[Rfam]
RNA: L31-Firmicutes ribosomal protein leader
RNA sequence: CUCUAUCUCUAAAGAGAGUUAGGGCGAAAUGAG
Numbered sequence: 001c002u003c004u005a006u007c008u009c010u011a012a013a014g015a016g017a018g019u020u021a022g023g024g025c026g027a028a029a030u031g032a033g
Stems, first nucleotide, its partner, number of pairs: 001024005006017003